[Rfam]
RNA sequence: CCAGGGGGCCGGGCAGCCGCGCCCCUUCGACAAGCUCAGGAUGAGCGGGUUGGAGGGUCGAGGAAAGUCCGGGCUCCACGAAACGAGGGUGGCGGGUAACGCCCGCCGGGUCCGCGCGAGCGGGCUCAGGGAAAGUGCCACAGAGAGUAUACCGCCGACGCGGCCCUAAAGGCCGCAGGCAAGGGUGAAAGGGUGCGGUAAGAGCGCACCGGGGCCUCGGCAACGCGGCCCGCAUGGCAAACCCCACCCGGAGCAAGGCCGAAUAGGGGCGGCGCGCCUGCGAAUGCGGGCCGGGGUGUUUCGCCCCGAGCGCAAGCUGCGACCGCCCGGGUUGGCUGCUUGAGCGCACGGAGCAAUCCGUCGCCUAGACGAAUGGCUGCCCUCGCGGGGCCGGUCCCUUUUCGGGAUACCGCCCGCGAGACAGAACCCGGCUUACAGGCCCCCUGGCAUU
Numbered sequence: 001c002c003a004g005g006g007g008g009c010c011g012g013g014c015a016g017c018c019g020c021g022c023c024c025c026u027u028c029g030a031c032a033a034g035c036u037c038a039g040g041a042u043g044a045g046c047g048g049g050u051u052g053g054a055g056g057g058u059c060g061a062g063g064a065a066a067g068u069c070c071g072g073g074c075u076c077c078a079c080g081a082a083a084c085g086a087g088g089g090u091g092g093c094g095g096g097u098a099a100c101g102c103c104c105g106c107c108g109g110g111u112c113c114g115c116g117c118g119a120g121c122g123g124g125c126u127c128a129g130g131g132a133a134a135g136u137g138c139c140a141c142a143g144a145g146a147g148u149a150u151a152c153c154g155c156c157g158a159c160g161c162g163g164c165c166c167u168a169a170a171g172g173c174c175g176c177a178g179g180c181a182a183g184g185g186u187g188a189a190a191g192g193g194u195g196c197g198g199u200a201a202g203a204g205c206g207c208a209c210c211g212g213g214g215c216c217u218c219g220g221c222a223a224c225g226c227g228g229c230c231c232g233c234a235u236g237g238c239a240a241a242c243c244c245c246a247c248c249c250g251g252a253g254c255a256a257g258g259c260c261g262a263a264u265a266g267g268g269g270c271g272g273c274g275c276g277c278c279u280g281c282g283a284a285u286g287c288g289g290g291c292c293g294g295g296g297u298g299u300u301u302c303g304c305c306c307c308g309a310g311c312g313c314a315a316g317c318u319g320c321g322a323c324c325g326c327c328c329g330g331g332u333u334g335g336c337u338g339c340u341u342g343a344g345c346g347c348a349c350g351g352a353g354c355a356a357u358c359c360g361u362c363g364c365c366u367a368g369a370c371g372a373a374u375g376g377c378u379g380c381c382c383u384c385g386c387g388g389g390g391c392c393g394g395u396c397c398c399u400u401u402u403c404g405g406g407a408u409a410c411c412g413c414c415c416g417c418g419a420g421a422c423a424g425a426a427c428c429c430g431g432c433u434u435a436c437a438g439g440c441c442c443c444c445u446g447g448c449a450u451u
Stems, first nucleotide, its partner, number of pairs: 001447010011436001012381007020060002023057009065434003069431005074253004087249005092106005107129001108127008130244002135242002137238003152184002154180003160176006192210006211233001212231005218225002257337004267328006344364003348361005

This 451-nucleotide RNA sequence from Pelagerythrobacter rhizovicinus belongs to the Rfam family "Bacterial RNase P class A". About the family: Ribonuclease P (RNase P) is a ubiquitous endoribonuclease, found in archaea, bacteria and eukarya as well as chloroplasts and mitochondria. Its best characterised activity is the generation of mature 5'-ends of tRNAs by cleaving the 5'-leader elements of precursor-tRNAs. Cellular RNase Ps are ribonucleoproteins. RNA from bacterial RNase Ps retains its catalytic activity in the absence of the protein subunit, i.e. it is a ribozyme. Taxonomically the source falls in Pelagerythrobacter (Bacteria, Pseudomonadati, Alphaproteobacteria, Sphingomonadales).